The family of this 81-nucleotide RNA sequence from Pseudolycoriella hygida is "mir-315 microRNA precursor family".
The literature on the family includes a 2007 paper in Genome Res by Stark et al., "Systematic discovery and characterization of fly microRNAs using 12 Drosophila genomes".
Rfam links the family to the GO terms miRNA-mediated post-transcriptional gene silencing and RISC complex.
A search with the family's covariance model found it, with a score of 78 bits.
Lineage of the source: Eukaryota > Eumetazoa > Mandibulata > Endopterygota > Pseudolycoriella.
RNA sequence: GACAUAUAUCAUUUUGAUUGUUGCUCAGAAAGCCGUUGUUUAUGAUAAGGCUUUCGAGUAAUAAUUGAAUCCAGAUAUGUU
Numbered sequence: 001g002a003c004a005u006a007u008a009u010c011a012u013u014u015u016g017a018u019u020g021u022u023g024c025u026c027a028g029a030a031a032g033c034c035g036u037u038g039u040u041u042a043u044g045a046u047a048a049g050g051c052u053u054u055c056g057a058g059u060a061a062u063a064a065u066u067g068a069a070u071c072c073a074g075a076u077a078u079g080u081u
Stems, first nucleotide, its partner, number of pairs: 001081007013069006020062007028055007